A member of the RNA family "mir-5014 microRNA precursor family" from Arabidopsis thaliana, 121 nucleotides long.
[Rfam]
RNA sequence: UUUGAUUUGUACAUUUAAAUUUGUACAACACUUUUAGUAUACAGAUGUAAGUGUACGCUGUGUAUAUCUAUAUACAUAUGUAUACUAAAAGUAUUGUACAAAUCUAAAUGUACAAAUCAAA
Numbered sequence: 001u002u003u004g005a006u007u008u009g010u011a012c013a014u015u016u017a018a019a020u021u022u023g024u025a026c027a028a029c030a031c032u033u034u035u036a037g038u039a040u041a042c043a044g045a046u047g048u049a050a051g052u053g054u055a056c057g058c059u060g061u062g063u064a065u066a067u068c069u070a071u072a073u074a075c076a077u078a079u080g081u082a083u084a085c086u087a088a089a090a091g092u093a094u095u096g097u098a099c100a101a102a103u104c105u106a107a108a109u110g111u112a113c114a115a116a117u118c119a120a121a
Base pairs, nucleotide, nucleotide: 001121002120003119004118005117006116007115008114009113010112011111012110013109014108015107016106017105019103020102021101022100023099024098025097026096027095028094030092031091032090033089034088035087036086037085038084039083040082041081042080043079045077046076048070049069053065054064055063056062
Dot-bracket structure: (((((((((((((((((.((((((((((.((((((((((((((.((.((...((((.....))))...)).....)).)))))))))))))).)))))))))).)))))))))))))))))
Lineage of the source: Eukaryota > Spermatophyta > Gunneridae > Camelineae > Arabidopsis. The family's consensus secondary structure was predicted with RNAalifold. Gene Ontology terms of the family: miRNA-mediated post-transcriptional gene silencing and RISC complex.